Rfam assigns this 91-nucleotide RNA from Xanthomonas campestris to the family "Xanthomonadaceae sRNA Xoo1". The family's RNA type in Rfam is small RNA. It is one of the family's seed sequences.
RNA sequence: GUUGCUUCCUAUGACAGGCGGCGACGUCAGGCUCUCUCUCUCGCCGAAGAAUUCAAACAAUUACGACGUACCCUUCGCGCCUCUGGCGCGA
Numbered sequence: 001g002u003u004g005c006u007u008c009c010u011a012u013g014a015c016a017g018g019c020g021g022c023g024a025c026g027u028c029a030g031g032c033u034c035u036c037u038c039u040c041u042c043g044c045c046g047a048a049g050a051a052u053u054c055a056a057a058c059a060a061u062u063a064c065g066a067c068g069u070a071c072c073c074u075u076c077g078c079g080c081c082u083c084u085g086g087c088g089c090g091a
Base pairs, nucleotide, nucleotide: 001025002024003023004022005021006020008018009017010016026067027066028065030045031044032043046054047053075091076090077089078088079087080086081085